[Rfam]
RNA sequence: GUGAGAGGUCCGUGUGACGCGGCUCGGCUCGAGCUUUUUUUAAAGUUACGGGUUGCGACCUAGAGAUUUUUCCUAGUUGCAAGAUUGGCUUUGUUUGAGCCGAUUCUUUUUACGCAACGCUCACUUGGGU
Numbered sequence: 001g002u003g004a005g006a007g008g009u010c011c012g013u014g015u016g017a018c019g020c021g022g023c024u025c026g027g028c029u030c031g032a033g034c035u036u037u038u039u040u041u042a043a044a045g046u047u048a049c050g051g052g053u054u055g056c057g058a059c060c061u062a063g064a065g066a067u068u069u070u071u072c073c074u075a076g077u078u079g080c081a082a083g084a085u086u087g088g089c090u091u092u093g094u095u096u097g098a099g100c101c102g103a104u105u106c107u108u109u110u111u112a113c114g115c116a117a118c119g120c121u122c123a124c125u126u127g128g129g130u
Stems, first nucleotide, its partner, number of pairs: 003072007018057004023052004033046004085103007

purD RNA motif: a 130-nucleotide RNA sequence from Campylobacter gracilis. Rfam links the family to the GO term regulation of gene expression. Taxonomically the source falls in Campylobacter gracilis (Bacteria, Pseudomonadati, Epsilonproteobacteria, Campylobacter). Pairs were carried over by alignment from the consensus structure, which is taken from published work.